RNA sequence: CAACUAUUUGUGCAUACAUUUCGUAUAACCCCACAUAACGGCUUCGGACACAGGGUGGGGGUUUCUACGGGAAGCCUAACUUCCUUGCUACGAAUGGCAAAUCUUAUGAU
Numbered sequence: 001c002a003a004c005u006a007u008u009u010g011u012g013c014a015u016a017c018a019u020u021u022c023g024u025a026u027a028a029c030c031c032c033a034c035a036u037a038a039c040g041g042c043u044u045c046g047g048a049c050a051c052a053g054g055g056u057g058g059g060g061g062u063u064u065c066u067a068c069g070g071g072a073a074g075c076c077u078a079a080c081u082u083c084c085u086u087g088c089u090a091c092g093a094a095u096g097g098c099a100a101a102u103c104u105u106a107u108g109a110u
Base pairs, nucleotide, nucleotide: 020094021093022092023091024090025089029060030059031058032057033056034055069085070084071083072082073081074080